[Rfam]
RNA sequence: GCGAAUCUUUUUGCGGUCUGGGCUUGCUGUGGAAAACUCUCGGUAUGGGAAGCCCUUACCCCAAAAAGCAUCCG
Numbered sequence: 001g002c003g004a005a006u007c008u009u010u011u012u013g014c015g016g017u018c019u020g021g022g023c024u025u026g027c028u029g030u031g032g033a034a035a036a037c038u039c040u041c042g043g044u045a046u047g048g049g050a051a052g053c054c055c056u057u058a059c060c061c062c063a064a065a066a067a068g069c070a071u072c073c074g
Stems, first nucleotide, its partner, number of pairs: 007068007015060003020055004025050001027048002
Dot-bracket structure: ......(((((((.(((..((((.(.((..................)).).))))..))).)))))))......
Shown here is a 74-nucleotide sequence from Denticeps clupeoides, a member of the family "mir-129 microRNA precursor family".
The organism belongs to Denticeps, within Eukaryota.
For this family Rfam cites "Identification of tissue-specific microRNAs from mouse" (Lagos-Quintana et al., Curr Biol, 2002).
The family's consensus secondary structure was predicted with RNAalifold.